[Rfam]
RNA sequence: CUAAUACUGUUGCUAAUGUGUAACUCUGUAAAAACAACUGGAAUUGCACUGUAGCAAUGGUGUUGG
Numbered sequence: 001c002u003a004a005u006a007c008u009g010u011u012g013c014u015a016a017u018g019u020g021u022a023a024c025u026c027u028g029u030a031a032a033a034a035c036a037a038c039u040g041g042a043a044u045u046g047c048a049c050u051g052u053a054g055c056a057a058u059g060g061u062g063u064u065g066g
Stems, first nucleotide, its partner, number of pairs: 005062011019048005025042004
The family of this 66-nucleotide RNA sequence from Lepidothrix coronata is "mir-367 microRNA precursor family". On this family, see Mineno et al., Nucleic Acids Res 2006: "The expression profile of microRNAs in mouse embryos". The source organism's lineage runs through Eukaryota, Sarcopterygii, Saurischia, Neoaves and Lepidothrix. A search with the family's covariance model found it, with a score of 69 bits.